The family of this 132-nucleotide sequence from Mus spicilegus is "Small nucleolar RNA SNORA17". Clan: SNORA17 clan. The match comes from Rfam's covariance-model search (120 bits). The family has 53 seed sequences and 5,784 matches in Rfam 15.1. Its family is annotated with nucleolus and RNA processing in the Gene Ontology. The organism belongs to Mus, within Eukaryota. About the family: snoRNA ACA 17 belongs to the H/ACA family of snoRNAs and is predicted to guide pseudouridylation of the 28S rRNA at positions U4659 and U4598. It shares the same host gene together with ACA43. NB This family has a high threshold value to exclude a large number of closely related sequences that do not appear to have conserved H and ACA boxes, and may be pseudogenes.
RNA sequence: CCUGCCCCUAGAAGCCUUGCAGGUGUGGCUGUUGUGUUACAUGUGUGUCAAUUGGUGGCAAAGAGGAGAGAGGCUAUGUCUAUGCUCAGUGCUCUGACCUAUGAACAUCUGAAUGACUAGUAGCCAAACAGU
Number, nucleotide and partner (000 for none) at each position: 001c000002c000003u060004g059005c058006c057007c055008c054009u000010a052011g000012a000013a000014g048015c047016c000017u000018u000019g046020c045021a044022g000023g000024u041025g040026u039027g038028g037029c036030u000031g000032u000033u000034g000035u000036g029037u028038u027039a026040c025041a024042u000043g000044u021045g020046u019047g015048u014049c000050a000051a000052u010053u000054g008055g007056u000057g006058g005059c004060a003061a000062a000063g000064a000065g000066g000067a000068g129069a000070g000071a000072g125073g124074c123075u122076a121077u120078g000079u000080c000081u000082a000083u115084g114085c000086u112087c111088a110089g109090u107091g106092c000093u104094c103095u000096g000097a000098c000099c000100u000101a000102u000103g094104a093105a000106c091107a090108u000109c089110u088111g087112a086113a000114u084115g083116a000117c000118u000119a000120g077121u076122a075123g074124c073125c072126a000127a000128a000129c068130a000131g000132u000